[Rfam]
RNA: mir-46/mir-47/mir-281 microRNA precursor family
Organism: Rhodnius prolixus
RNA sequence: GGACAUGCAUGAUGAAGAGAGCUAUCCGUCGACAGUACAGAACAGUUCCACUGUCAUGGAGUUGCUCUCUUUAUUUACAUGCCC
Number, nucleotide and partner (000 for none) at each position: 001g000002g000003a000004c000005a000006u000007g000008c000009a000010u000011g000012a000013u000014g072015a071016a070017g069018a068019g000020a066021g065022c064023u000024a000025u060026c059027c058028g057029u000030c000031g055032a054033c053034a000035g051036u050037a000038c000039a000040g000041a000042a000043c000044a000045g000046u000047u000048c000049c000050a036051c035052u000053g033054u032055c031056a000057u028058g027059g026060a025061g000062u000063u000064g022065c021066u020067c000068u018069c017070u016071u015072u014073a000074u000075u000076u000077a000078c000079a000080u000081g000082c000083c000084c000